GP20-b RNA: a 66-nucleotide sequence from Herbinix hemicellulosilytica. The match comes from Rfam's covariance-model search (44 bits).
[Rfam]
RNA sequence: GGUCAGUUGAUUAGACCUAAAACAGUCGGCGCUUGGUGGUUUGGUAAAACACCUAAAAAAUACCUA
Numbered sequence: 001g002g003u004c005a006g007u008u009g010a011u012u013a014g015a016c017c018u019a020a021a022a023c024a025g026u027c028g029g030c031g032c033u034u035g036g037u038g039g040u041u042u043g044g045u046a047a048a049a050c051a052c053c054u055a056a057a058a059a060a061u062a063c064c065u066a
Base pairs, nucleotide, nucleotide: 001017002016003015004014009027010026011025012024035053036052037051038050